[Rfam]
RNA sequence: GAAGGUUUUGUGGCCCUUCGGCAUCGCCCUGCGGGGGGAGAUGUCAAACCGCCUCAAGCUGCGUUGGCUGAAGACCGUCGUGGUGAGCGUUGAGGAAAAGGCACGCUUGACGUGUCAGGU
Numbered sequence: 001g002a003a004g005g006u007u008u009u010g011u012g013g014c015c016c017u018u019c020g021g022c023a024u025c026g027c028c029c030u031g032c033g034g035g036g037g038g039a040g041a042u043g044u045c046a047a048a049c050c051g052c053c054u055c056a057a058g059c060u061g062c063g064u065u066g067g068c069u070g071a072a073g074a075c076c077g078u079c080g081u082g083g084u085g086a087g088c089g090u091u092g093a094g095g096a097a098a099a100g101g102c103a104c105g106c107u108u109g110a111c112g113u114g115u116c117a118g119g120u
Base pairs, nucleotide, nucleotide: 001019002018003017004016005015020045021044022043023042024041025040027038028037029036030035050119052095053094054093055092056091057090058084059083061081062080063079065077066076067075100116101115102114103113104112105111